[Rfam]
RNA sequence: CAUACUUUAAUUUAAAUCCACACACAUUUCGUCACAUGUUCCGGGGUGCUUGAGUAAUCAUUCAUACCAAGUCGGAACCAUGGGAAAUGUGGAGGCCUAAC
Numbered sequence: 001c002a003u004a005c006u007u008u009a010a011u012u013u014a015a016a017u018c019c020a021c022a023c024a025c026a027u028u029u030c031g032u033c034a035c036a037u038g039u040u041c042c043g044g045g046g047u048g049c050u051u052g053a054g055u056a057a058u059c060a061u062u063c064a065u066a067c068c069a070a071g072u073c074g075g076a077a078c079c080a081u082g083g084g085a086a087a088u089g090u091g092g093a094g095g096c097c098u099a100a101c
Stems, first nucleotide, its partner, number of pairs: 023091008035082004040076004048072005
The family of this 101-nucleotide RNA sequence from Vibrio maritimus is "t44 RNA". The organism belongs to Vibrio, within Bacteria. A reference for the family is Tjaden et al. (2002), "Transcriptome analysis of Escherichia coli using high-density oligonucleotide probe arrays", Nucleic Acids Res.